Shown here is a 114-nucleotide RNA sequence from Mucilaginibacter straminoryzae, a member of the family "SAM riboswitch aptamer (S box leader)". A search with the family's covariance model found it, with a score of 87 bits. Its family is annotated with regulation of gene expression in the Gene Ontology. The source organism's lineage runs through Bacteria, Pseudomonadati, Bacteroidota, Sphingobacteriales and Mucilaginibacter. Clan: SAM clan.
RNA sequence: UACUUAUCCAGAAAGACUGAGGGAAAGGCCCGAUGACGUCUUAGCAACCUGUAUUAACGCAGUUAAUAAAAGGUGCUAAUUCCUGCUCCUGAUUUUAUAGGAGAAAGAUAAGAU
Numbered sequence: 001u002a003c004u005u006a007u008c009c010a011g012a013a014a015g016a017c018u019g020a021g022g023g024a025a026a027g028g029c030c031c032g033a034u035g036a037c038g039u040c041u042u043a044g045c046a047a048c049c050u051g052u053a054u055u056a057a058c059g060c061a062g063u064u065a066a067u068a069a070a071a072g073g074u075g076c077u078a079a080u081u082c083c084u085g086c087u088c089c090u091g092a093u094u095u096u097a098u099a100g101g102a103g104a105a106a107g108a109u110a111a112g113a114u
Stems, first nucleotide, its partner, number of pairs: 003112006013042005021031003026084003043077004048073002050069001052068005081106001086103006